This 120-nucleotide sequence from Alkaliphilus serpentinus belongs to the Rfam family "Molybdenum/Tungsten riboswitch aptamer (Moco RNA motif)". Rfam links the family to the GO terms tungstate binding, molybdenum ion binding and regulation of gene expression. It scores 75 bits against the family's covariance model. NCBI's taxonomy places the organism under Bacteria, Bacillota, Clostridia, Peptostreptococcales, Alkaliphilus.

RNA sequence: AAAAUAACAAAUUUCCGAGCCUUACCUUCUAAGGACCACCAUCUAUGAAGAAUGGCCGACGGGUUAAAGAAGAAAUUCUUUUGCCUCCCUCUAUUGGAAAGGAAAUUAGCUGGAAUUGAU
Numbered sequence: 001a002a003a004a005u006a007a008c009a010a011a012u013u014u015c016c017g018a019g020c021c022u023u024a025c026c027u028u029c030u031a032a033g034g035a036c037c038a039c040c041a042u043c044u045a046u047g048a049a050g051a052a053u054g055g056c057c058g059a060c061g062g063g064u065u066a067a068a069g070a071a072g073a074a075a076u077u078c079u080u081u082u083g084c085c086u087c088c089c090u091c092u093a094u095u096g097g098a099a100a101g102g103a104a105a106u107u108a109g110c111u112g113g114a115a116u117u118g119a120u
Stems, first nucleotide, its partner, number of pairs: 006111001011106006019056003023052001025050001027049003033044003061086004066081006087097002